[Rfam]
RNA sequence: GCCUCCUUAGCUCAGUGGUAGAGCAACGCACUUGUAAUGCGUAGGUCGUCAGUUCAAUCCUGACAGGGGGCU
Dot-bracket structure: (((((((..((((.......)))).(((((.......))))).....(((((.......)))))))))))).
Numbered sequence: 001g002c003c004u005c006c007u008u009a010g011c012u013c014a015g016u017g018g019u020a021g022a023g024c025a026a027c028g029c030a031c032u033u034g035u036a037a038u039g040c041g042u043a044g045g046u047c048g049u050c051a052g053u054u055c056a057a058u059c060c061u062g063a064c065a066g067g068g069g070g071c072u
Stems, first nucleotide, its partner, number of pairs: 001071007010024004026042005048064005
This 72-nucleotide sequence from Mycolicibacterium doricum belongs to the Rfam family "tRNA". The base pairs follow the family's consensus structure, which is taken from published work. Rfam links the family to the GO term triplet codon-amino acid adaptor activity.